[Rfam]
RNA sequence: AUCGUUGGACUAAAAGUCGGAAGUAAGCAAUCGCUGAAGCAACGCACU
Numbered sequence: 001a002u003c004g005u006u007g008g009a010c011u012a013a014a015a016g017u018c019g020g021a022a023g024u025a026a027g028c029a030a031u032c033g034c035u036g037a038a039g040c041a042a043c044g045c046a047c048u
Stems, first nucleotide, its partner, number of pairs: 003044005009017003020045001026035003
The family of this 48-nucleotide RNA sequence is "Glutamine riboswitch aptamer (glnA leader)". For this family Rfam cites "Bacterial aptamers that selectively bind glutamine" (Ames and Breaker, RNA Biol, 2011).